Rfam assigns this 155-nucleotide RNA sequence from Blautia sp. An46 to the family "Clostridiales-1 RNA". The family has 194 seed sequences and 1,172 matches in Rfam 15.1. The family's RNA type in Rfam is small RNA. The base pairs follow the family's consensus structure, which is taken from published work. Taxonomically the source falls in Blautia (Bacteria, Bacillota, Clostridia, Lachnospirales).

Nucleotides: 155
Stems, first nucleotide, its partner, number of pairs: 001151001005062003010056006017049002020046002024042001026039005067112008077102004084095004114145007125135004
Number, partner (000 for none) and nucleotide at each position: 001151g002000a003000a004000a005062g006061u007060c008000u009000c010056a011055a012054a013053a014052c015051a016000g017049a018048g019000a020046c021045g022000g023000a024042c025000g026039g027038g028037c029036u030035g031000c032000u033000u034000g035030c036029a037028g038027c039026c040000c041000a042024g043000g044000a045021c046020g047000g048018c049017u050000g051015u052014g053013u054012u055011u056010u057000c058000g059000a060007g061006a062005c063000g064000c065000u066000a067112a068111u069110c070109c071108a072107u073106a074105u075000g076000a077102g078101c079100a080099a081000g082000a083000a084095g085094g086093c087092u088000g089000g090000u091000a092087g093086g094085c095084c096000g097000g098000a099080u100079u101078g102077c103000g104000a105074a106073u107072a108071u109070g110069g111068a112067u113000a114145g115144g116143a117142u118141u119140g120139c121000a122000g123000g124000a125135g126134c127133g128132c129000a130000g131000a132128g133127c134126g135125c136000g137000g138000a139120g140119c141118a142117a143116u144115c145114c146000g147000u148000g149000g150000g151001c152000u153000u154000u155000c